RNA sequence: CGGGCGGUGAAGUCCCAGAUCCGCUCCUCCAGCAGGCCCCACUGGUCGAAGUAGUCGCCGUCGGCGACCACGCCCACCACCGCCUCCUCGCCGUACUGGCCCGCGGCGUGCUGCUCGACCCGGCCGUGCGCGAUGACCAGGAACCGGUCCUCGGCGUGGCCCCACUCGACGAUGGUGUCGCCCGCGGCGUAGGUCUCCUCGGCGAACAGGUUCGCCAGCGCGCCCAGGGUCUCCUCGUCGUCGAACUCGCGCAGGAACGCCAGUUCGCGCAGGUCACCGGCGAUCACCCGGGACUGCGAGCCGCUGCGGUCGACGUCGAUGCGGCCGUCGCCGACGACGUAGCUGCGCCGCUGGUUCACCCGGUAGGUGCCGCCGCUGACCUGCACCCACGGCAGGACGCGCAGCAGCCAGCGGGAGGUGAUCUCCUGCAUCUGCGGCACGGACUUGGUCGUGGUCGCGAGGUUUCUCGCCGCCGCCGUCCCCAGGGACUGCUGCGACGGCUGCGC
Numbered sequence: 001c002g003g004g005c006g007g008u009g010a011a012g013u014c015c016c017a018g019a020u021c022c023g024c025u026c027c028u029c030c031a032g033c034a035g036g037c038c039c040c041a042c043u044g045g046u047c048g049a050a051g052u053a054g055u056c057g058c059c060g061u062c063g064g065c066g067a068c069c070a071c072g073c074c075c076a077c078c079a080c081c082g083c084c085u086c087c088u089c090g091c092c093g094u095a096c097u098g099g100c101c102c103g104c105g106g107c108g109u110g111c112u113g114c115u116c117g118a119c120c121c122g123g124c125c126g127u128g129c130g131c132g133a134u135g136a137c138c139a140g141g142a143a144c145c146g147g148u149c150c151u152c153g154g155c156g157u158g159g160c161c162c163c164a165c166u167c168g169a170c171g172a173u174g175g176u177g178u179c180g181c182c183c184g185c186g187g188c189g190u191a192g193g194u195c196u197c198c199u200c201g202g203c204g205a206a207c208a209g210g211u212u213c214g215c216c217a218g219c220g221c222g223c224c225c226a227g228g229g230u231c232u233c234c235u236c237g238u239c240g241u242c243g244a245a246c247u248c249g250c251g252c253a254g255g256a257a258c259g260c261c262a263g264u265u266c267g268c269g270c271a272g273g274u275c276a277c278c279g280g281c282g283a284u285c286a287c288c289c290g291g292g293a294c295u296g297c298g299a300g301c302c303g304c305u306g307c308g309g310u311c312g313a314c315g316u317c318g319a320u321g322c323g324g325c326c327g328u329c330g331c332c333g334a335c336g337a338c339g340u341a342g343c344u345g346c347g348c349c350g351c352u353g354g355u356u357c358a359c360c361c362g363g364u365a366g367g368u369g370c371c372g373c374c375g376c377u378g379a380c381c382u383g384c385a386c387c388c389a390c391g392g393c394a395g396g397a398c399g400c401g402c403a404g405c406a407g408c409c410a411g412c413g414g415g416a417g418g419u420g421a422u423c424u425c426c427u428g429c430a431u432c433u434g435c436g437g438c439a440c441g442g443a444c445u446u447g448g449u450c451g452u453g454g455u456c457g458c459g460a461g462g463u464u465u466c467u468c469g470c471c472g473c474c475g476c477c478g479u480c481c482c483c484a485g486g487g488a489c490u491g492c493u494g495c496g497a498c499g500g501c502u503g504c505g506c
Stems, first nucleotide, its partner, number of pairs: 006387004011382002015378001018325001022321001025319002027315001028313002035310001037308001039306001042303001045302001046298001049295001051230002055226001057224001059222003062108002065105001072100001074099003079094002082091002115218001117216001119214001124209001126207002128203002131201003135197002148191001152189002155186004159178002163174002232292003237287002240284003246280002249277001251275001253274001258267002326339004349375002352372003357369004388428002391425002394422001397419002400415001402413001404412001434473004441466003444462003448458002474505002477499003481496001483494003